[Rfam]
RNA sequence: CAGUUAAAAAGCUCGUAGUCGAACUUCGGAUCUGGCGGGAUGGUCCGCCUUACGGUGUGUACUGUCCGGCCGGAUCUUACCUCUUGGUGAAGCCGUAUGCCCUUUACUGGGUGUGCGGUGGAACCAGGAAUUUUACUUUGAGAAAAUUAGAGUGUUCAAAGCAGGCAUACGCCCGAAUACAUUAGCAUGGAAUAAUAGAAUAGGACGUGCGGUUCUAUUUUGUUGGUUUCUAGGAUCGCCGUAAUGAUUAAUAGGGACGGUCGGGGGCAUUAGUAUUCCGUUGCUAGAGGUGAAAUUCUUAGAUUUACGGAAGACUAACUUCUGCGAAAGCAUUUGCCAAGGACGUUUUCAUUGAUCAAGAACGAAGGUUAGGGGAUCAAAAACGAUUAGAUACCGUUGUAGUCUUAACAGUAAACUAUGCCGACUAGGGAUCGGUCCACGUCAUCUUCUGACUGGAUCGGCACCUUACGAGAAAUCAAAGUCUUUGGGUUCUGGGGGGAGUAUGGUCGCAAGGCUGAAACUUAAAGGAAU
Numbered sequence: 001c002a003g004u005u006a007a008a009a010a011g012c013u014c015g016u017a018g019u020c021g022a023a024c025u026u027c028g029g030a031u032c033u034g035g036c037g038g039g040a041u042g043g044u045c046c047g048c049c050u051u052a053c054g055g056u057g058u059g060u061a062c063u064g065u066c067c068g069g070c071c072g073g074a075u076c077u078u079a080c081c082u083c084u085u086g087g088u089g090a091a092g093c094c095g096u097a098u099g100c101c102c103u104u105u106a107c108u109g110g111g112u113g114u115g116c117g118g119u120g121g122a123a124c125c126a127g128g129a130a131u132u133u134u135a136c137u138u139u140g141a142g143a144a145a146a147u148u149a150g151a152g153u154g155u156u157c158a159a160a161g162c163a164g165g166c167a168u169a170c171g172c173c174c175g176a177a178u179a180c181a182u183u184a185g186c187a188u189g190g191a192a193u194a195a196u197a198g199a200a201u202a203g204g205a206c207g208u209g210c211g212g213u214u215c216u217a218u219u220u221u222g223u224u225g226g227u228u229u230c231u232a233g234g235a236u237c238g239c240c241g242u243a244a245u246g247a248u249u250a251a252u253a254g255g256g257a258c259g260g261u262c263g264g265g266g267g268c269a270u271u272a273g274u275a276u277u278c279c280g281u282u283g284c285u286a287g288a289g290g291u292g293a294a295a296u297u298c299u300u301a302g303a304u305u306u307a308c309g310g311a312a313g314a315c316u317a318a319c320u321u322c323u324g325c326g327a328a329a330g331c332a333u334u335u336g337c338c339a340a341g342g343a344c345g346u347u348u349u350c351a352u353u354g355a356u357c358a359a360g361a362a363c364g365a366a367g368g369u370u371a372g373g374g375g376a377u378c379a380a381a382a383a384c385g386a387u388u389a390g391a392u393a394c395c396g397u398u399g400u401a402g403u404c405u406u407a408a409c410a411g412u413a414a415a416c417u418a419u420g421c422c423g424a425c426u427a428g429g430g431a432u433c434g435g436u437c438c439a440c441g442u443c444a445u446c447u448u449c450u451g452a453c454u455g456g457a458u459c460g461g462c463a464c465c466u467u468a469c470g471a472g473a474a475a476u477c478a479a480a481g482u483c484u485u486u487g488g489g490u491u492c493u494g495g496g497g498g499g500a501g502u503a504u505g506g507u508c509g510c511a512a513g514g515c516u517g518a519a520a521c522u523u524a525a526a527g528g529a530a531u
Base pairs, nucleotide, nucleotide: 001494002493003492009491011363013361014360018356019355020354254350255349256348257347258345259344261342262341266338267337268336269335272316273315276312277311278310279309280308281307283305287298288297289296321332324331325330368409369408370407371406372405373404378402382398383397384396385395420490421489422488423483424482425481427466428465429464432461433460434459435458436457437456438455439454441453442452443451470477471476496523497522498521505516506515507514508513

Shown here is a 531-nucleotide part of an RNA from Saitozyma podzolica, a member of the family "Eukaryotic small subunit ribosomal RNA". Its Rfam clan is "SSU clan". The match comes from Rfam's covariance-model search (1827 bits).